[Rfam]
RNA sequence: AAUAGUAGAAUAACAAAUUAAAUUUUUCCUCUUAAUACUUAGCUUUUUCUCUUGAAAAAAUUUAAAUUCAACUAAAAAUACUAAAAAUUAGGAGGAAAAAUUUGAUUUGUUAUUCUCUCAUU
Numbered sequence: 001a002a003u004a005g006u007a008g009a010a011u012a013a014c015a016a017a018u019u020a021a022a023u024u025u026u027u028c029c030u031c032u033u034a035a036u037a038c039u040u041a042g043c044u045u046u047u048u049c050u051c052u053u054g055a056a057a058a059a060a061u062u063u064a065a066a067u068u069c070a071a072c073u074a075a076a077a078a079u080a081c082u083a084a085a086a087a088u089u090a091g092g093a094g095g096a097a098a099a100a101u102u103u104g105a106u107u108u109g110u111u112a113u114u115c116u117c118u119c120a121u122u
Stems, first nucleotide, its partner, number of pairs: 001122003005118001007116021029094008039084001041082002045078004